[Rfam]
RNA sequence: GCCACACGGUGAUUUGAAAUAUACUUUGCAUUAGCACGUGUGCAAAGGAGACUAUAUACCUAUCACCCAUGUCUGAUGGCU
Number, nucleotide and partner (000 for none) at each position: 001g080002c079003c078004a077005c000006a000007c000008g000009g000010u000011g000012a000013u000014u000015u000016g000017a000018a000019a000020u000021a000022u000023a000024c000025u000026u000027u000028g000029c000030a000031u000032u000033a000034g043035c042036a041037c000038g000039u000040g000041u036042g035043c034044a000045a000046a000047g000048g000049a000050g000051a000052c000053u000054a000055u000056a000057u000058a000059c000060c000061u000062a000063u000064c000065a000066c000067c000068c000069a000070u000071g000072u000073c000074u000075g000076a000077u004078g003079g002080c001081u000
The family of this 81-nucleotide sequence from Megalops atlanticus is "Small nucleolar RNA SNORD83". Rfam links the family to the GO terms RNA processing and nucleolus. Lineage of the source: Eukaryota > Chordata > Euteleostomi > Actinopteri > Megalops.